[Rfam]
Nucleotides: 136
Base pairs, nucleotide, nucleotide: 003059004058005057006056007055019046020045021044023043025040026039027038028037076123077122078121079120080119081118082117
Number, partner (000 for none) and nucleotide at each position: 001000g002000u003059c004058c005057u006056c007055c008000a009000g010000a011000u012000c013000c014000c015000u016000u017000u018000c019046c020045c021044a022000u023043c024000a025040g026039a027038u028037c029000u030000g031000a032000a033000u034000a035000c036000c037028g038027a039026u040025c041000u042000c043023g044021u045020g046019g047000u048000c049000g050000a051000a052000a053000a054000a055007g056006g057005a058004g059003g060000a061000a062000a063000a064000g065000c066000a067000a068000a069000a070000u071000g072000c073000a074000g075000c076123c077122u078121g079120g080119c081118c082117u083000g084000g085000g086000c087000c088000u089000c090000u091000c092000u093000g094000c095000u096000c097000g098000u099000g100000c101000a102000g103000c104000c105000g106000u107000g108000c109000u110000c111000c112000g113000a114000g115000a116000a117082g118081g119080g120079c121078c122077a123076g124000u125000u126000u127000g128000c129000a130000g131000a132000c133000a134000c135000g136000g